[Rfam]
A member of the RNA family "ylbH leader" from Paenibacillus oceani, 127 nucleotides long.
NCBI's taxonomy places the organism under Bacteria, Bacillati, Bacillota, Bacilli, Paenibacillus.
On this family, see Barrick et al., Proc Natl Acad Sci U S A 2004: "New RNA motifs suggest an expanded scope for riboswitches in bacterial genetic control".
Rfam classes the family as a cis-regulatory leader.
This family is a putative regulatory RNA structure that is found upstream of the ylbH gene in B. subtilis and related low GC Gram-positive bacteria.
RNA sequence: AACAAAAAAACCGCCCCACACAAGGCCGGGCGGAUCAUAGUCUUUGGGGGCCGCUUGCGCGAACCCCCUCAUGGGAGAGGAGAAACCGGACGAAGAGCUUAUGGGGAAACGUAAGUCUUCUCCGCGG
Numbered sequence: 001a002a003c004a005a006a007a008a009a010a011c012c013g014c015c016c017c018a019c020a021c022a023a024g025g026c027c028g029g030g031c032g033g034a035u036c037a038u039a040g041u042c043u044u045u046g047g048g049g050g051c052c053g054c055u056u057g058c059g060c061g062a063a064c065c066c067c068c069u070c071a072u073g074g075g076a077g078a079g080g081a082g083a084a085a086c087c088g089g090a091c092g093a094a095g096a097g098c099u100u101a102u103g104g105g106g107a108a109a110c111g112u113a114a115g116u117c118u119u120c121u122c123c124g125c126g127g
Stems, first nucleotide, its partner, number of pairs: 011033006019025001035074004087124004092120004097116005